[Rfam]
RNA sequence: UGCUCCCUGGGAUGCAUGCCAACUGGUAAUGUCCCUGUGCCGAUAAUUUUUAUCUCAGGGUGAAUGCUUUACUGACAUUGUGCAUGCUCGGCUUGUACCGAGAAGCCUUAGGAGGUAAUCAUUUACCCGCCUUGAACCUACGGUUCAAGGGCUACACCGGUAGCGGCAUUCUGGGGAGCAU
Number, nucleotide and partner (000 for none) at each position: 001u000002g179003c178004u177005c176006c175007c174008u173009g172010g171011g170012a169013u168014g167015c166016a000017u165018g164019c163020c000021a000022a000023c000024u000025g000026g000027u000028a000029a000030u000031g152032u151033c150034c149035c000036u147037g146038u000039g144040c143041c142042g000043a000044u000045a000046a000047u000048u000049u000050u000051u000052a000053u000054c000055u000056c000057a000058g128059g127060g126061u000062g124063a123064a122065u121066g120067c000068u000069u118070u117071a116072c115073u114074g000075a000076c112077a000078u000079u000080g000081u000082g106083c105084a000085u000086g000087c102088u101089c100090g099091g098092c000093u000094u000095g000096u000097a000098c091099c090100g089101a088102g087103a000104a000105g083106c082107c000108u000109u000110a000111g000112g076113a000114g073115g072116u071117a070118a069119u000120c066121a065122u064123u063124u062125a000126c060127c059128c058129g000130c000131c000132u000133u000134g000135a000136a000137c000138c000139u000140a000141c000142g041143g040144u039145u000146c037147a036148a000149g034150g033151g032152c031153u000154a000155c000156a000157c000158c000159g000160g000161u000162a000163g019164c018165g017166g015167c014168a013169u012170u011171c010172u009173g008174g007175g006176g005177a004178g003179c002180a000181u000
About this RNA
This 181-nucleotide sequence from Shewanella baltica belongs to the Rfam family "6S / SsrS RNA". By type it is a non-coding RNA gene. The base pairs follow the family's consensus structure, which is taken from published work. It is one of the family's seed sequences. Rfam describes the family as follows. E. coli 6S RNA was the first non coding RNA to be sequenced, but its function was unknown until recently.